[Rfam]
RNA: mir-2807 microRNA precursor family
RNA sequence: UUAACUUAAAUUUGUAUGGAGCUGGAACGUUUGCCUACGUUUGCCACUAGGGGUGUUGUUCCAACUGCAUACAGAUUUGAGUUA
Numbered sequence: 001u002u003a004a005c006u007u008a009a010a011u012u013u014g015u016a017u018g019g020a021g022c023u024g025g026a027a028c029g030u031u032u033g034c035c036u037a038c039g040u041u042u043g044c045c046a047c048u049a050g051g052g053g054u055g056u057u058g059u060u061c062c063a064a065c066u067g068c069a070u071a072c073a074g075a076u077u078u079g080a081g082u083u084a
Base pairs, nucleotide, nucleotide: 008078009077010076011075012074013073014072015071016070018068020066021065023063024062025061026060027059028058029057034052035051036050039047040046